[Rfam]
RNA sequence: CCCCAAGUGGCGGAAUAGGUAGACGCAUUGGACUUAAAAUCCAACGGGCUUAAUAUCCUGUGCCGGUUCAAGUCCGGCCUUGGGGA
Numbered sequence: 001c002c003c004c005a006a007g008u009g010g011c012g013g014a015a016u017a018g019g020u021a022g023a024c025g026c027a028u029u030g031g032a033c034u035u036a037a038a039a040u041c042c043a044a045c046g047g048g049c050u051u052a053a054u055a056u057c058c059u060g061u062g063c064c065g066g067u068u069c070a071a072g073u074c075c076g077g078c079c080u081u082g083g084g085g086a
Stems, first nucleotide, its partner, number of pairs: 001085007010026003028044005062078005

This 86-nucleotide RNA sequence from Mycoplasma capricolum belongs to the Rfam family "tRNA". The source organism's lineage runs through Bacteria, Bacillati, Mycoplasmatota, Mycoplasmatales and Mycoplasma. The family's consensus secondary structure is taken from published work. Rfam classes the family as a transfer RNA. Rfam's curators put it in the seed alignment.